Rfam assigns this 55-nucleotide RNA from Mycolicibacterium aromaticivorans to the family "L31-Actinobacteria ribosomal protein leader".
[Rfam]
RNA sequence: CAGGUACCGGUUCACGCUCGAAUUGCCAGGAAAACACUCGGGCGACCCGGCGACC
Numbered sequence: 001c002a003g004g005u006a007c008c009g010g011u012u013c014a015c016g017c018u019c020g021a022a023u024u025g026c027c028a029g030g031a032a033a034a035c036a037c038u039c040g041g042g043c044g045a046c047c048c049g050g051c052g053a054c055c
Stems, first nucleotide, its partner, number of pairs: 003055003007050004015044007
Rfam's curators put it in the seed alignment. The source organism's lineage runs through Bacteria, Bacillati, Actinomycetota, Mycobacterium (subgen. Mycolicibacterium) and Mycolicibacterium aromaticivorans. It is annotated as a cis-regulatory leader.